[Rfam]
Nucleotides: 117
Base pairs, nucleotide, nucleotide: 001015002014003013004012005011016041017040018039019038020037021036023034024033025032026031045117046116048091049090050089051088052087053086054080055079057077058076059075061073062072063071064070096114097113098112099111100110101109
Number, partner (000 for none) and nucleotide at each position: 001015g002014a003013g004012g005011g006000u007000a008000g009000g010000u011005c012004c013003c014002u015001c016041g017040g018039g019038a020037u021036c022000g023034g024033g025032u026031u027000g028000c029000a030000g031026g032025a033024c034023c035000a036021g037020a038019u039018c040017u041016c042000a043000a044000a045117u046116c047000a048091c049090c050089c051088g052087a053086a054080g055079c056000g057077g058076c059075u060000u061073g062072g063071a064070u065000u066000a067000a068000g069000a070064g071063u072062c073061c074000u075059g076058g077057u078000c079055g080054u081000g082000a083000g084000c085000g086053u087052u088051c089050g090049g091048g092000a093000a094000a095000a096114g097113g098112c099111c100110g101109g102000u103000c104000u105000u106000g107000a108000a109101c110100c111099g112098g113097u114096c115000a116046g117045a
Overview: The family of this 117-nucleotide RNA sequence from Singulisphaera acidiphila is "Group II catalytic intron D1-D4-2". Rfam 15.1 lists 1,231 matches to the family in 625 species. The pairing is the family consensus, mapped onto this sequence. Taxonomically the source falls in Singulisphaera acidiphila (Bacteria, Pseudomonadati, Planctomycetia, Singulisphaera). Rfam describes the family as follows. Group II introns are found in rRNA, tRNA and mRNA of organelles in fungi, plants and protists, and also in mRNA in bacteria. For this family Rfam cites "The ins and outs of group II introns" (Bonen and Vogel, Trends Genet, 2001). It scores 116 bits against the family's covariance model.